[Rfam]
RNA sequence: AGCAGUAGCAGCAAAGUAAGGUGAGAAUCCUUACCGCCGAAGGGGCUAGGGAUCCUUGGCAAUGUUCGUCAGCCAAGGGUUAGUCGAUCCUAAGGCCAGUCGUAAAUCGAGCUGGUCGAAAGGGAAACAGGUUAAUAUUCCUGUACAGGAUAGGUACAUACGGUGACGUUAAGACUAGUUUCUGACACUUUGAGGUAGGCCGAGUGGGAUUAUCGUCCCAUUUAAUUGUUGAAGCUUGAGGAGAGGUGUAAUAGCGAGAAUCAAGUGGAGAUUUGAAUAGCCGUCCUUUUAUGGAUGGUUCGGUUGAUCCAUGGAGUCCUUGAAAAAGGAAUUAGUAUGAAUCCUAUUUUUCCGUACCGAGAUCCGACACAGGUGCCCCUAGUUGAGUAGACUAAGGCGUGU
Numbered sequence: 001a002g003c004a005g006u007a008g009c010a011g012c013a014a015a016g017u018a019a020g021g022u023g024a025g026a027a028u029c030c031u032u033a034c035c036g037c038c039g040a041a042g043g044g045g046c047u048a049g050g051g052a053u054c055c056u057u058g059g060c061a062a063u064g065u066u067c068g069u070c071a072g073c074c075a076a077g078g079g080u081u082a083g084u085c086g087a088u089c090c091u092a093a094g095g096c097c098a099g100u101c102g103u104a105a106a107u108c109g110a111g112c113u114g115g116u117c118g119a120a121a122g123g124g125a126a127a128c129a130g131g132u133u134a135a136u137a138u139u140c141c142u143g144u145a146c147a148g149g150a151u152a153g154g155u156a157c158a159u160a161c162g163g164u165g166a167c168g169u170u171a172a173g174a175c176u177a178g179u180u181u182c183u184g185a186c187a188c189u190u191u192g193a194g195g196u197a198g199g200c201c202g203a204g205u206g207g208g209a210u211u212a213u214c215g216u217c218c219c220a221u222u223u224a225a226u227u228g229u230u231g232a233a234g235c236u237u238g239a240g241g242a243g244a245g246g247u248g249u250a251a252u253a254g255c256g257a258g259a260a261u262c263a264a265g266u267g268g269a270g271a272u273u274u275g276a277a278u279a280g281c282c283g284u285c286c287u288u289u290u291a292u293g294g295a296u297g298g299u300u301c302g303g304u305u306g307a308u309c310c311a312u313g314g315a316g317u318c319c320u321u322g323a324a325a326a327a328g329g330a331a332u333u334a335g336u337a338u339g340a341a342u343c344c345u346a347u348u349u350u351u352c353c354g355u356a357c358c359g360a361g362a363u364c365c366g367a368c369a370c371a372g373g374u375g376c377c378c379c380u381a382g383u384u385g386a387g388u389a390g391a392c393u394a395a396g397g398c399g400u401g402u
Stems, first nucleotide, its partner, number of pairs: 016034006035399004043378004049358002054078006063071002085354002089123002094117006100110003127144005147350008181329003187317006194310002198305005203222006228272002235265005245255001247253001286293001364373002380394004
RNA: Archaeal large subunit ribosomal RNA, nucleotides 1418 to 1819